Source information:
Rfam assigns this 263-nucleotide sequence from Anaerostipes sp. 494a to the family "Bacterial large signal recognition particle RNA". The family is grouped with related families in Rfam's "SRP clan". The family's consensus secondary structure is taken from published work. Rfam's curators write: The signal recognition particle (SRP) is a universally conserved ribonucleoprotein involved in the co-translational targeting of proteins to membranes. NCBI's taxonomy places the organism under Bacteria, Clostridia, Lachnospirales, Lachnospiraceae, Anaerostipes. By type it is a non-coding RNA gene.

RNA sequence: CCGUGCAACCGGGGAGGUAGCGGCACCCUAUUUCUGCAAUCCGCUAUAGCAGAGGUGAUGGUUUGUUUCGGGCUUCUUUCUGUAGAGCUGCCCUUUAUAAGUGGCGUUGAUAUCUGGGUCUUACGCAAUAGGAAUCUGUGAACCGUGUCAGGUCGGGAACGAAGCAGCACUAAGCAGAACCUCCUAUGUGCCGUAAGGGUGCCUGGGUUGAGUUAACUGUAGAGGUAACGUCUGUGGAAUUAGGCACAACGCAAACCGCACGG
Numbered sequence: 001c002c003g004u005g006c007a008a009c010c011g012g013g014g015a016g017g018u019a020g021c022g023g024c025a026c027c028c029u030a031u032u033u034c035u036g037c038a039a040u041c042c043g044c045u046a047u048a049g050c051a052g053a054g055g056u057g058a059u060g061g062u063u064u065g066u067u068u069c070g071g072g073c074u075u076c077u078u079u080c081u082g083u084a085g086a087g088c089u090g091c092c093c094u095u096u097a098u099a100a101g102u103g104g105c106g107u108u109g110a111u112a113u114c115u116g117g118g119u120c121u122u123a124c125g126c127a128a129u130a131g132g133a134a135u136c137u138g139u140g141a142a143c144c145g146u147g148u149c150a151g152g153u154c155g156g157g158a159a160c161g162a163a164g165c166a167g168c169a170c171u172a173a174g175c176a177g178a179a180c181c182u183c184c185u186a187u188g189u190g191c192c193g194u195a196a197g198g199g200u201g202c203c204u205g206g207g208u209u210g211a212g213u214u215a216a217c218u219g220u221a222g223a224g225g226u227a228a229c230g231u232c233u234g235u236g237g238a239a240u241u242a243g244g245c246a247c248a249a250c251g252c253a254a255a256c257c258g259c260a261c262g263g
Stems, first nucleotide, its partner, number of pairs: 001263006008056003011029004016024001018022001033053005062255005068249001070247001072245004078239009089227002093224006101217002103214003112208008120197006126188002129186005135178005145170004153162003